[Rfam]
RNA sequence: UUGAUCGUGUGGCUCCAGGUCUGGUCCGCCGAGACCAGCGCGCCCUCGCCGAAGUAGUCGCCGUCGGCGAGCACGCCGAGCACCGCGUCAUCGCCGUACUCGCCACGGCCGAGCUUGUUCACCUUGCCGUGCGCGAGCAGGAACACCUGGUCCACGGCGCUGCCGGCUUCGACGAUGACGUCGCCGGGCUCGAAGUUCUGCUGCACGAAGCGGUCGGCGAGCGCGCCCAGCACCGACUCGUCGUCGAAUCCCCGCAGCAGCGGCAGUUCGCGCAGUUCUUGGGGGAUCACGCGGACGUCCGAGCCGGUGUUGGUGAAGGUCACCCGCCCGUCGCCCAGGGUGUAGGUGAGCCUGCGGUUGACCCGGUAGGUCCCGCCCGUCGCCUGGGUCCACGGCAGCAUCCGCAGCAGCCAGCGGGACGUGAUGCCCUGCAUCUGCGGUGGGGUCUUGGUCGUUGUCGCGAGGUUGCGCGCUGCCGCCGUCCCCAGGCUCAGCUGCGGCUGCUCGU
Numbered sequence: 001u002u003g004a005u006c007g008u009g010u011g012g013c014u015c016c017a018g019g020u021c022u023g024g025u026c027c028g029c030c031g032a033g034a035c036c037a038g039c040g041c042g043c044c045c046u047c048g049c050c051g052a053a054g055u056a057g058u059c060g061c062c063g064u065c066g067g068c069g070a071g072c073a074c075g076c077c078g079a080g081c082a083c084c085g086c087g088u089c090a091u092c093g094c095c096g097u098a099c100u101c102g103c104c105a106c107g108g109c110c111g112a113g114c115u116u117g118u119u120c121a122c123c124u125u126g127c128c129g130u131g132c133g134c135g136a137g138c139a140g141g142a143a144c145a146c147c148u149g150g151u152c153c154a155c156g157g158c159g160c161u162g163c164c165g166g167c168u169u170c171g172a173c174g175a176u177g178a179c180g181u182c183g184c185c186g187g188g189c190u191c192g193a194a195g196u197u198c199u200g201c202u203g204c205a206c207g208a209a210g211c212g213g214u215c216g217g218c219g220a221g222c223g224c225g226c227c228c229a230g231c232a233c234c235g236a237c238u239c240g241u242c243g244u245c246g247a248a249u250c251c252c253c254g255c256a257g258c259a260g261c262g263g264c265a266g267u268u269c270g271c272g273c274a275g276u277u278c279u280u281g282g283g284g285g286a287u288c289a290c291g292c293g294g295a296c297g298u299c300c301g302a303g304c305c306g307g308u309g310u311u312g313g314u315g316a317a318g319g320u321c322a323c324c325c326g327c328c329c330g331u332c333g334c335c336c337a338g339g340g341u342g343u344a345g346g347u348g349a350g351c352c353u354g355c356g357g358u359u360g361a362c363c364c365g366g367u368a369g370g371u372c373c374c375g376c377c378c379g380u381c382g383c384c385u386g387g388g389u390c391c392a393c394g395g396c397a398g399c400a401u402c403c404g405c406a407g408c409a410g411c412c413a414g415c416g417g418g419a420c421g422u423g424a425u426g427c428c429c430u431g432c433a434u435c436u437g438c439g440g441u442g443g444g445g446u447c448u449u450g451g452u453c454g455u456u457g458u459c460g461c462g463a464g465g466u467u468g469c470g471c472g473c474u475g476c477c478g479c480c481g482u483c484c485c486c487a488g489g490c491u492c493a494g495c496u497g498c499g500g501c502u503g504c505u506c507g508u
Stems, first nucleotide, its partner, number of pairs: 003390004009384001012381001018325002022322005029315001035313007047303001049301001051299002054233002058229001060227001062225003065111004075103001077102004082097002085094002117222004122217002127212001130209001131206001133204003137201001139199003143196002150191001155188001156185003160177001166173001237293001240290002243287003249283003254278001256277003260271003329342004351379001354376004360372004391431002394428004399423003403418001405416001407415001437476004442471001444469001447465003451461002477507002480503002484499001486497003
The family of this 508-nucleotide RNA from Saccharopolyspora gloriosae is "Saccharopolyspora sRNA 350". The family has 2 seed sequences and 1,170 matches in Rfam 15.1. The literature on the family includes a 2013 paper in PLoS One by Liu et al., "Prediction and characterization of small non-coding RNAs related to secondary metabolites in Saccharopolyspora erythraea". Gene Ontology term of the family: regulation of secondary metabolite biosynthetic process.